[Rfam]
RNA sequence: GAGGCAUUCCAAAGGAUCAGGACUUGCUUCAGUGGGGCUUUGGUGCUCACUGAGUCCUGUCCCAUUAGUGUGUCUCU
Number, nucleotide and partner (000 for none) at each position: 001g076002a075003g074004g073005c072006a071007u070008u000009c068010c000011a066012a065013a000014g063015g062016a000017u000018c059019a058020g000021g056022a055023c054024u000025u000026g000027c000028u000029u053030c052031a051032g050033u049034g048035g047036g046037g044038c043039u000040u000041u000042g000043g038044u037045g000046c036047u035048c034049a033050c032051u031052g030053a029054g023055u022056c021057c000058u019059g018060u000061c000062c015063c014064a000065u012066u011067a000068g009069u000070g007071u006072g005073u004074c003075u002076c001077u000
mir-9229 microRNA precursor family: a 77-nucleotide RNA from Myotis brandtii. The family has 7 seed sequences and 27,225 matches in Rfam 15.1. Lineage of the source: Eukaryota > Opisthokonta > Teleostomi > Tetrapoda > Myotis. It scores 71 bits against the family's covariance model.